[Rfam]
RNA: Selenocysteine transfer RNA
Organism: Chloracidobacterium thermophilum
RNA sequence: GGAGGCGCAUGCGGUCCGGUGGCCGUCACGAACUUCAAAUUCGCUGCGUCCGUGUGGCAACACGGAUGGGUGGGUUCGACUCCCACACGCCUUC
Numbered sequence: 001g002g003a004g005g006c007g008c009a010u011g012c013g014g015u016c017c018g019g020u021g022g023c024c025g026u027c028a029c030g031a032a033c034u035u036c037a038a039a040u041u042c043g044c045u046g047c048g049u050c051c052g053u054g055u056g057g058c059a060a061c062a063c064g065g066a067u068g069g070g071u072g073g074g075u076u077c078g079a080c081u082c083c084c085a086c087a088c089g090c091c092u093u094c
Stems, first nucleotide, its partner, number of pairs: 001094007011026006029043004047068007071085004